[Rfam]
RNA: eL15-Euryarchaeota ribosomal protein leader
Organism: haloarchaeon 3A1-DGR
RNA sequence: CCCGCCGCCCGGCCGACGCCGGUCGGGGACGGGACGAGAUGUGGUUCCGCGGCGUCGUCGCGGGACUGAAUCGCAAG
Numbered sequence: 001c002c003c004g005c006c007g008c009c010c011g012g013c014c015g016a017c018g019c020c021g022g023u024c025g026g027g028g029a030c031g032g033g034a035c036g037a038g039a040u041g042u043g044g045u046u047c048c049g050c051g052g053c054g055u056c057g058u059c060g061c062g063g064g065a066c067u068g069a070a071u072c073g074c075a076a077g
Stems, first nucleotide, its partner, number of pairs: 001033004035073003043067010